[Rfam]
RNA: Small nucleolar RNA SNORD35
RNA sequence: UGCAAAUGAUGUUUUUCUCACGAUGGUCUUCCAAGCUCAAGAGGCUCUGACGACAUUGCCUUUGGCAAACGCUGAUGCAGCUUA
Numbered sequence: 001u002g003c004a005a006a007u008g009a010u011g012u013u014u015u016u017c018u019c020a021c022g023a024u025g026g027u028c029u030u031c032c033a034a035g036c037u038c039a040a041g042a043g044g045c046u047c048u049g050a051c052g053a054c055a056u057u058g059c060c061u062u063u064g065g066c067a068a069a070c071g072c073u074g075a076u077g078c079a080g081c082u083u084a
Stems, first nucleotide, its partner, number of pairs: 001079004